Annotation: Shown here is a 139-nucleotide RNA sequence from Saezia sanguinis, a member of the family "radC RNA". The family's RNA type in Rfam is cis-regulatory element. Taxonomically the source falls in Saezia (Bacteria, Pseudomonadati, Burkholderiales, Saeziaceae).
RNA sequence: AUCAUUGGAGCAUGUUCAGCUGACGUCGUCAGCAACUGCCCAGGCAAUCGACAUCUUUAAGGUUGCGGUCUGGUUCACCCAGGCUGAUGCAUUUUUUCAAUUAAUUCACAACCCGGCAGGGAUAUCUCCCUGCCAGGGA
Numbered sequence: 001a002u003c004a005u006u007g008g009a010g011c012a013u014g015u016u017c018a019g020c021u022g023a024c025g026u027c028g029u030c031a032g033c034a035a036c037u038g039c040c041c042a043g044g045c046a047a048u049c050g051a052c053a054u055c056u057u058u059a060a061g062g063u064u065g066c067g068g069u070c071u072g073g074u075u076c077a078c079c080c081a082g083g084c085u086g087a088u089g090c091a092u093u094u095u096u097u098c099a100a101u102u103a104a105u106u107c108a109c110a111a112c113c114c115g116g117c118a119g120g121g122a123u124a125u126c127u128c129c130c131u132g133c134c135a136g137g138g139a
Stems, first nucleotide, its partner, number of pairs: 011038002014036001016034001019033006044066006052089004067085007109138001115134008